[Rfam]
Source information: A member of the RNA family "MIR5269 microRNA precursor family" from Medicago truncatula, 79 nucleotides long.

RNA sequence: UUAGUUUAAAUCAUUGUAGACCUAUACUUUAAAAAUUGAACCCACACAAAAUGGUAGGACAUACAUUGAUUUCAUCCAA
Numbered sequence: 001u002u003a004g005u006u007u008a009a010a011u012c013a014u015u016g017u018a019g020a021c022c023u024a025u026a027c028u029u030u031a032a033a034a035a036u037u038g039a040a041c042c043c044a045c046a047c048a049a050a051a052u053g054g055u056a057g058g059a060c061a062u063a064c065a066u067u068g069a070u071u072u073c074a075u076c077c078a079a
Base pairs, nucleotide, nucleotide: 001079002078004076006074008072009071010070011069012068013067015065016064017063018062022057023056024055025053026052028050029049030048